[Rfam]
RNA: Group II catalytic intron D1-D4-6
Organism: Anaerobacillus alkaliphilus
Nucleotides: 230
Base pairs, nucleotide, nucleotide: 011035012034013033014032018030019029020028022199024197025196038081039080042078043077044076045075047073048069049068050067051066052065057064058063124221125220126219127218128217129216143214144213145212146211147210148174149173150172153168155166156165179209180208181207182206183205184204185203186202187201188200
Number, partner (000 for none) and nucleotide at each position: 001000g002000a003000a004000u005000u006000u007000c008000c009000g010000u011035c012034g013033a014032g015000u016000a017000a018030g019029a020028g021000c022199u023000a024197g025196c026000c027000a028020c029019u030018c031000a032014c033013u034012c035011g036000u037000a038081g039080c040000g041000a042078g043077u044076c045075u046000u047073g048069g049068a050067g051066g052065g053000c054000u055000u056000c057064a058063g059000g060000u061000a062000a063058c064057u065052c066051c067050u068049u069048u070000a071000a072000g073047c074000u075045a076044g077043a078042u079000a080039g081038u082000u083000a084000g085000a086000u087000u088000g089000c090000g091000g092000g093000c094000c095000g096000a097000a098000a099000g100000c101000u102000g103000a104000a105000u106000g107000a108000a109000a110000a111000u112000g113000a114000a115000g116000g117000g118000a119000a120000u121000a122000u123000a124221g125220c126219u127218c128217c129216g130000a131000a132000a133000u134000a135000c136000c137000u138000a139000a140000u141000u142000g143214a144213g145212a146211a147210g148174g149173c150172u151000g152000a153168u154000g155166c156165g157000u158000u159000g160000g161000u162000c163000u164000g165156u166155g167000a168153a169000g170000a171000a172150a173149g174148c175000a176000a177000u178000a179209u180208u181207c182206u183205u184204u185203c186202u187201u188200c189000g190000u191000g192000a193000a194000u195000g196025g197024c198000a199022a200188g201187a202186g203185g204184a205183a206182a207181g208180a209179a210147c211146u212145u213144c214143u215000a216129c217128g218127g219126a220125g221124u222000c223000g224000a225000g226000g227000a228000c229000c230000u